[Rfam]
RNA sequence: UAGCUCCUUCAAAAAGCACUGGUUUUUGGAUCCAGACUGAUCCUGGCCAGCCGUCAAAGUGAGCAAUAGAAAAUAUCUUGUUUUUGGGUGAGGUGUGAUUGUAUCUAGGUCGGAUCUCAAUAACACGAUGACAAUU
Numbered sequence: 001u002a003g004c005u006c007c008u009u010c011a012a013a014a015a016g017c018a019c020u021g022g023u024u025u026u027u028g029g030a031u032c033c034a035g036a037c038u039g040a041u042c043c044u045g046g047c048c049a050g051c052c053g054u055c056a057a058a059g060u061g062a063g064c065a066a067u068a069g070a071a072a073a074u075a076u077c078u079u080g081u082u083u084u085u086g087g088g089u090g091a092g093g094u095g096u097g098a099u100u101g102u103a104u105c106u107a108g109g110u111c112g113g114a115u116c117u118c119a120a121u122a123a124c125a126c127g128a129u130g131a132c133a134a135u136u
Stems, first nucleotide, its partner, number of pairs: 003064004016054002019050005028043004084128003087124001089119006096112005
Caenorhabditis snoRNA ceN82: a 136-nucleotide sequence from Caenorhabditis bovis. By type it is an H/ACA-box small nucleolar RNA. Its family is annotated with RNA processing and nucleolus in the Gene Ontology. A search with the family's covariance model found it, with a score of 130 bits. The family's consensus secondary structure was predicted with RNAalifold.